[Rfam]
Nucleotides: 053
Stems, first nucleotide, its partner, number of pairs: 002052004007047001012040002014037003
Number, partner (000 for none) and nucleotide at each position: 001000a002052g003051c004050c005049u006000c007047c008000c009000c010000c011000u012040u013039a014037c015036u016035g017000a018000a019000a020000a021000u022000u023000u024000c025000u026000c027000c028000u029000u030000g031000c032000a033000a034000a035016c036015a037014g038000a039013u040012a041000u042000g043000a044000c045000c046000a047007g048000a049005a050004g051003g052002c053000a
About this RNA
Rfam assigns this 53-nucleotide RNA sequence to the family "APC internal ribosome entry site (IRES)". About the family: This family represents an APC internal ribosome entry site (IRES) which is located in the coding sequence of the gene. APC is a tumour suppressor gene which is associated with the inherited disease adenomatous polyposis coli (APC).It is thought that IRES-mediated translation of APC is important for an apoptotic cascade. Rfam's curators put it in the seed alignment. The literature on the family includes a 2002 paper in Proc Natl Acad Sci U S A by Heppner Goss et al., "Attenuated APC alleles produce functional protein from internal translation initiation". Gene Ontology term of the family: ribosome binding.